Rfam assigns this 123-nucleotide RNA from Asparagus officinalis to the family "mir-63 microRNA precursor family". Its family is annotated with miRNA-mediated post-transcriptional gene silencing and RISC complex in the Gene Ontology.
RNA sequence: UUUACCAGAUCUACUAAACUUCACGGGAGUUCAACUCCCGUAAGUUUUAUAGUUCAAAAUAAAAUUUUGAACUAUGAAACUUUACGGGAGUUGAACUCCCGUGAAGUUUAGUAGAUCUGCUAA
Numbered sequence: 001u002u003u004a005c006c007a008g009a010u011c012u013a014c015u016a017a018a019c020u021u022c023a024c025g026g027g028a029g030u031u032c033a034a035c036u037c038c039c040g041u042a043a044g045u046u047u048u049a050u051a052g053u054u055c056a057a058a059a060u061a062a063a064a065u066u067u068u069g070a071a072c073u074a075u076g077a078a079a080c081u082u083u084a085c086g087g088g089a090g091u092u093g094a095a096c097u098c099c100c101g102u103g104a105a106g107u108u109u110a111g112u113a114g115a116u117c118u119g120c121u122a123a
Stems, first nucleotide, its partner, number of pairs: 001123002005119001007118008018107005024101010035090007042082004047077013
Dot-bracket structure: ((..(.((((((((...(((((.((((((((((.(((((((((((.(((((((((((((.....))))))))))))).)))).))))))).)))))))))).)))))...)))))))))..))
A reference for the family is de Wit et al. (2009), "Repertoire and evolution of miRNA genes in four divergent nematode species", Genome Res.